A member of the RNA family "mir-2060 microRNA precursor family" from Branchiostoma floridae, 84 nucleotides long. Rfam links the family to the GO terms miRNA-mediated post-transcriptional gene silencing and RISC complex. NCBI's taxonomy places the organism under Eukaryota, Opisthokonta, Metazoa, Bilateria, Branchiostoma.
Nucleotides: 084
Base pairs, nucleotide, nucleotide: 008065009064010063011062012061013060014059016057017056018055019054020053021052022051024045026043027042028041029040031038032037
Number, partner (000 for none) and nucleotide at each position: 001000g002000u003000g004000a005000g006000g007000a008065u009064g010063g011062u012061g013060u014059u015000c016057a017056g018055c019054a020053c021052c022051a023000a024045g025000g026043a027042c028041a029040g030000g031038c032037a033000u034000g035000c036000a037032u038031g039000g040029c041028u042027g043026u044000g045024u046000g047000u048000g049000g050000a051022u052021g053020g054019u055018g056017u057016u058000c059014a060013g061012c062011a063010c064009c065008a066000a067000g068000g069000a070000c071000a072000g073000g074000u075000a076000u077000g078000u079000u080000u081000g082000g083000c084000u